Nitrogen stress-induced RNA 1: a 55-nucleotide RNA from Moorena producens.
[Rfam]
RNA sequence: UGGUAGAUGAACCCUGAUAAUUACCCCCGGAGCUCCAGUUUCCGGGGUUUUCUGA
Number, nucleotide and partner (000 for none) at each position: 001u000002g013003g012004u011005a000006g000007a000008u000009g000010a000011a004012c003013c002014c000015u000016g000017a000018u000019a000020a000021u000022u000023a000024c000025c047026c046027c045028c044029g043030g042031a040032g039033c038034u000035c000036c000037a000038g033039u032040u031041u000042c030043c029044g028045g027046g026047g025048u000049u000050u000051u000052c000053u000054g000055a000